[Rfam]
RNA sequence: GGUUGUAAAUUCAAGGCCAUAGCAGAAGUGUUUAUGGUACAGCCUGUCAGAUUACAACAAACCUGUGAAUUCUGCU
Numbered sequence: 001g002g003u004u005g006u007a008a009a010u011u012c013a014a015g016g017c018c019a020u021a022g023c024a025g026a027a028g029u030g031u032u033u034a035u036g037g038u039a040c041a042g043c044c045u046g047u048c049a050g051a052u053u054a055c056a057a058c059a060a061a062c063c064u065g066u067g068a069a070u071u072c073u074g075c076u
Base pairs, nucleotide, nucleotide: 015044016043017042021076022075023074024073025072026071027070028040029039030038048065049064050063052061053060
RNA: Mammalian CPEB3 ribozyme
Organism: Alligator mississippiensis